RNA: Small nucleolar RNA R21
RNA sequence: UAUCGCUAUGACGAGUAAAAAUAUAAAAGUAGUGGACUGAAAAAUCCAUUGAUGAAUAAAUUAAUUCCGAGCGAUA
Numbered sequence: 001u002a003u004c005g006c007u008a009u010g011a012c013g014a015g016u017a018a019a020a021a022u023a024u025a026a027a028a029g030u031a032g033u034g035g036a037c038u039g040a041a042a043a044a045u046c047c048a049u050u051g052a053u054g055a056a057u058a059a060a061u062u063a064a065u066u067c068c069g070a071g072c073g074a075u076a
Stems, first nucleotide, its partner, number of pairs: 001076006